[Rfam]
RNA sequence: AAGUCUUUUAAACUAGUCCAGAGAGGCUGGGAAAGAUAUCUCAUAACGUCUAAAUAUAAAAGUUAUGCUAAGAUAAAAUCCUUAUACCUCCCUUGGUAUAGGGAUUUUUUUAU
Numbered sequence: 001a002a003g004u005c006u007u008u009u010a011a012a013c014u015a016g017u018c019c020a021g022a023g024a025g026g027c028u029g030g031g032a033a034a035g036a037u038a039u040c041u042c043a044u045a046a047c048g049u050c051u052a053a054a055u056a057u058a059a060a061a062g063u064u065a066u067g068c069u070a071a072g073a074u075a076a077a078a079u080c081c082u083u084a085u086a087c088c089u090c091c092c093u094u095g096g097u098a099u100a101g102g103g104a105u106u107u108u109u110u111u112a113u
Base pairs, nucleotide, nucleotide: 003037004036005035006034007033008032009031013030014029015028016027017026018025039070042067043066044065045064046063047062049060051058052057075108076107077106078105079104080103081102082101083100084099085098086097087096088095
The record is a 113-nucleotide RNA from Asaccharospora irregularis, which matches "PyrR binding site" in Rfam. From the family's description: This family represents the PyrR binding site and terminator structure. This RNA structure is found upstream of a variety of genes involved in pyrimidine biosynthesis and transport. The alignment also includes a portion of the antiterminator structure. Pairs were carried over by alignment from the consensus structure, which is taken from published work. Gene Ontology terms of the family: pyrimidine nucleobase transport and pyrimidine nucleobase biosynthetic process.